[Rfam]
RNA: Streptococcus sRNA SpF59 (ldcC RNA)
Organism: Schinkia azotoformans
RNA sequence: UGACCACUUUUUUAAAGAAAAGUUAAGGCCAUACGGACAGCCGGGUCAAAUGCCGA
Numbered sequence: 001u002g003a004c005c006a007c008u009u010u011u012u013u014a015a016a017g018a019a020a021a022g023u024u025a026a027g028g029c030c031a032u033a034c035g036g037a038c039a040g041c042c043g044g045g046u047c048a049a050a051u052g053c054c055g056a
Stems, first nucleotide, its partner, number of pairs: 001048005006023006